[Rfam]
RNA sequence: AAAAAGAAUAAGCUGAGUCCAGCCCAGGAGCGGGGGAACCAAGUUUUUUGGGGUGAACGUCUGGCUCACGGUGUCAGGCCGAGCGGUCUUCAUGGUGAAAUAGGCGAGGGUGGUCUUCUCUACCCUAACCCGGCAGCUAACCUCGUAAGCGAAGAGAGAGAGGAGUG
Number, nucleotide and partner (000 for none) at each position: 001a000002a000003a000004a000005a000006g000007a000008a000009u000010a000011a000012g150013c149014u148015g000016a000017g000018u029019c028020c027021a000022g000023c000024c000025c000026a000027g020028g019029a018030g146031c145032g144033g143034g142035g141036g000037a000038a000039c000040c050041a049042a000043g000044u000045u000046u000047u000048u000049u041050g040051g131052g130053g129054u000055g000056a000057a000058c000059g105060u104061c103062u102063g000064g000065c000066u000067c000068a000069c000070g000071g000072u000073g000074u000075c000076a000077g000078g000079c000080c000081g000082a000083g000084c000085g000086g000087u000088c000089u000090u000091c000092a000093u000094g000095g000096u000097g000098a000099a000100a000101u000102a062103g061104g060105c059106g000107a000108g125109g124110g123111u122112g000113g000114u000115c000116u000117u000118c000119u000120c000121u000122a111123c110124c109125c108126u000127a000128a000129c053130c052131c051132g000133g000134c000135a000136g000137c000138u000139a000140a000141c035142c034143u033144c032145g031146u030147a000148a014149g013150c012151g000152a000153a000154g000155a000156g000157a000158g000159a000160g000161a000162g000163g000164a000165g000166u000167g000